[Rfam]
Nucleotides: 078
Stems, first nucleotide, its partner, number of pairs: 004050009015039001017066005024036004056072004
Number, partner (000 for none) and nucleotide at each position: 001000u002000u003000u004050c005049a006048a007047u008046c009045a010044c011043a012042u013000g014000a015039c016000u017066g018065g019064c020063g021062g022000a023000a024036g025035u026034g027033g028000a029000g030000u031000u032000a033027c034026c035025a036024c037000a038000u039015g040000g041000a042012g043011u044010g045009u046008g047007a048006u049005u050004g051000u052000g053000a054000a055000a056072u057071g058070c059069c060000g061000a062021c063020c064019g065018c066017c067000u068000g069059g070058g071057c072056g073000c074000a075000a076000g077000u078000u
A member of the RNA family "ZMP/ZTP riboswitch aptamer (pfl RNA motif)" from Fervidicella metallireducens, 78 nucleotides long.